[Rfam]
RNA sequence: CCCAGGGCUUUGCCCCGGGCUGUAAUAUUUUGCCCCUUCGGGGCU
Numbered sequence: 001c002c003c004a005g006g007g008c009u010u011u012g013c014c015c016c017g018g019g020c021u022g023u024a025a026u027a028u029u030u031u032g033c034c035c036c037u038u039c040g041g042g043g044c045u
Stems, first nucleotide, its partner, number of pairs: 001019003005015004032044005
The record is a 45-nucleotide sequence from Desulfonema ishimotonii, which matches "Acido-Lenti-1 RNA" in Rfam.
The base pairs follow the family's consensus structure, which is taken from published work.
Rfam classes the family as a small RNA.